[Rfam]
Rfam assigns this 86-nucleotide sequence from Mesorhabditis belari to the family "SmY spliceosomal RNA".
It is annotated as a spliceosomal small nuclear RNA.
RNA sequence: CGACUCAUUACAAUUACGUAGGGCCUUCCCUAAGACCCGAAAAUCAAUUUUUGGACGGUCCCGCUGUUGUCCUUCGGCGCGGGACC
Numbered sequence: 001c002g003a004c005u006c007a008u009u010a011c012a013a014u015u016a017c018g019u020a021g022g023g024c025c026u027u028c029c030c031u032a033a034g035a036c037c038c039g040a041a042a043a044u045c046a047a048u049u050u051u052u053g054g055a056c057g058g059u060c061c062c063g064c065u066g067u068u069g070u071c072c073u074u075c076g077g078c079g080c081g082g083g084a085c086c
Base pairs, nucleotide, nucleotide: 021038022037023036025034026033027032057086058085059084060083061082062081063080064079
On this family, see MacMorris et al., RNA 2007: "A novel family of C. elegans snRNPs contains proteins associated with trans-splicing". The family's consensus secondary structure is taken from published work. A search with the family's covariance model found it, with a score of 43 bits.